Rfam assigns this 119-nucleotide RNA from Niallia taxi to the family "SAM riboswitch aptamer (S box leader)".
Nucleotides: 119
Stems, first nucleotide, its partner, number of pairs: 003117006013043005021032003027086003044079004049075002053070005083111001087108005
Number, partner (000 for none) and nucleotide at each position: 001000a002000a003117c004116u005115u006114a007113u008112c009000c010000a011000g012000a013043g014042a015041g016040g017039u018000g019000g020000a021032g022031g023030g024000a025000a026000c027086u028085g029084g030023c031022c032021c033000a034000u035000u036000g037000a038000a039017a040016c041015c042014u043013c044079g045078g046077c047076a048000g049075c050074g051000g052000a053070u054069u055068c056067a057066u058000c059000a060000u061000u062000u063000u064000u065000g066057a067056u068055g069054a070053a071000a072000a073000c074050u075049g076047u077046g078045c079044c080000a081000a082000u083111u084029c085028c086027a087108a088107g089106g090105a091104c092000g093000c094000g095000a096000a097000u098000u099000a100000u101000u102000c103000g104091g105090u106089c107088u108087u109000a110000c111083a112008g113007a114006u115005a116004a117003g118000a119000g
Taxonomically the source falls in Niallia (Bacteria, Bacillati, Bacilli, Bacillaceae).